[Rfam]
RNA sequence: AGCUGUGCGGUGAGCGCAGAGCAAACUAUUCUUUCGCCUUUUACUAAAGAAUACCGCGUGCUCGCCGCCCAAAGCGGCAUACGCCAGUUUUUGGAACGCCUCACUUGCUGCCC
Numbered sequence: 001a002g003c004u005g006u007g008c009g010g011u012g013a014g015c016g017c018a019g020a021g022c023a024a025a026c027u028a029u030u031c032u033u034u035c036g037c038c039u040u041u042u043a044c045u046a047a048a049g050a051a052u053a054c055c056g057c058g059u060g061c062u063c064g065c066c067g068c069c070c071a072a073a074g075c076g077g078c079a080u081a082c083g084c085c086a087g088u089u090u091u092u093g094g095a096a097c098g099c100c101u102c103a104c105u106u107g108c109u110g111c112c113c
Stems, first nucleotide, its partner, number of pairs: 003077004008067010027053008101110001